[Rfam]
RNA sequence: UUGUGAAUAUUCUCACUUCUGACUUUGUGAUAAUCAGGACAGUCAACAUUUGCUUAUAAAGGACCAUGCAUGUGUCCCCAGACAUAGGUCUUUUCUUUCCCUGGUCCAGUUUUAUGAAUGCUGGUGAUAAAC
Numbered sequence: 001u002u003g004u005g006a007a008u009a010u011u012c013u014c015a016c017u018u019c020u021g022a023c024u025u026u027g028u029g030a031u032a033a034u035c036a037g038g039a040c041a042g043u044c045a046a047c048a049u050u051u052g053c054u055u056a057u058a059a060a061g062g063a064c065c066a067u068g069c070a071u072g073u074g075u076c077c078c079c080a081g082a083c084a085u086a087g088g089u090c091u092u093u094u095c096u097u098u099c100c101c102u103g104g105u106c107c108a109g110u111u112u113u114a115u116g117a118a119u120g121c122u123g124g125u126g127a128u129a130a131a132c
Stems, first nucleotide, its partner, number of pairs: 003053003016042002018038005024032001063125004068121002078109001081106003087100001
A member of the RNA family "Small nucleolar RNA SNORA72" from Jaculus jaculus, 132 nucleotides long. U72 is a member of the H/ACA class of snoRNAs. The snoRNA gene is located in intron 4 of the ribosomal L30 protein gene in human, mouse and chicken. Pairs were carried over by alignment from the consensus structure, which was predicted with PFOLD. Rfam links the family to the GO terms RNA processing and nucleolus. Taxonomically the source falls in Jaculus (Eukaryota, Craniata, Rodentia, Dipodoidea). It is annotated as an H/ACA-box small nucleolar RNA.